[Rfam]
Overview: Group II catalytic intron D1-D4-7: a 141-nucleotide RNA sequence from Sporofaciens musculi. A reference for the family is Bonen and Vogel (2001), "The ins and outs of group II introns", Trends Genet. Pairs were carried over by alignment from the consensus structure. The source organism's lineage runs through Bacteria, Bacillati, Bacillota, Clostridia and Sporofaciens. Group II introns are found in rRNA, tRNA and mRNA of organelles in fungi, plants and protists, and also in mRNA in bacteria.

RNA sequence: CCAUCCAUUCCGUUGGAUGAAGCCGUUAUCCCCGGCUCUGCCAGUAAUGGCACUGUUCGGAAGCGGAUAUAAACGUAACCCUGCUUGGAAUCCAAACCGUGAGGGGCGGAUGAAACUGCUAGCUACAAGGCGGUUAGGGUG
Numbered sequence: 001c002c003a004u005c006c007a008u009u010c011c012g013u014u015g016g017a018u019g020a021a022g023c024c025g026u027u028a029u030c031c032c033c034g035g036c037u038c039u040g041c042c043a044g045u046a047a048u049g050g051c052a053c054u055g056u057u058c059g060g061a062a063g064c065g066g067a068u069a070u071a072a073a074c075g076u077a078a079c080c081c082u083g084c085u086u087g088g089a090a091u092c093c094a095a096a097c098c099g100u101g102a103g104g105g106g107c108g109g110a111u112g113a114a115a116c117u118g119c120u121a122g123c124u125a126c127a128a129g130g131c132g133g134u135u136a137g138g139g140u141g
Base pairs, nucleotide, nucleotide: 002019003018004017005016006015007014027069028068029067030066031065032060033059034058035056036055039052040051041050042049043048081088090111091110092109093108097104098103115134116133117132118131119130120129